[Rfam]
RNA sequence: GCUGGCAACAGUGAUGAUUUCUUUUUGCCGUUUACCCAUCUGAAUAUACAUUGAUGCAUAUUUUCUAAUUCUGAGUUGCCAGC
Numbered sequence: 001g002c003u004g005g006c007a008a009c010a011g012u013g014a015u016g017a018u019u020u021c022u023u024u025u026u027g028c029c030g031u032u033u034a035c036c037c038a039u040c041u042g043a044a045u046a047u048a049c050a051u052u053g054a055u056g057c058a059u060a061u062u063u064u065c066u067a068a069u070u071c072u073g074a075g076u077u078g079c080c081a082g083c
Stems, first nucleotide, its partner, number of pairs: 001083007